[Rfam]
RNA sequence: UUUUAAUCGCGGGGGGACACACUUGUGUUGAGAAGGCUAAAACCUGACCCUUUGAACCUGUUAGUUAAUACUGACGUAGGGAGCAAUUAGUGGUUUUCU
Numbered sequence: 001u002u003u004u005a006a007u008c009g010c011g012g013g014g015g016g017a018c019a020c021a022c023u024u025g026u027g028u029u030g031a032g033a034a035g036g037c038u039a040a041a042a043c044c045u046g047a048c049c050c051u052u053u054g055a056a057c058c059u060g061u062u063a064g065u066u067a068a069u070a071c072u073g074a075c076g077u078a079g080g081g082a083g084c085a086a087u088u089a090g091u092g093g094u095u096u097u098c099u
Stems, first nucleotide, its partner, number of pairs: 006087002009084002011051004016045001017028004035044002057080004061074004
Shown here is a 99-nucleotide RNA from Carnobacterium antarcticum, a member of the family "TPP riboswitch aptamer (THI element)".
It scores 64 bits against the family's covariance model.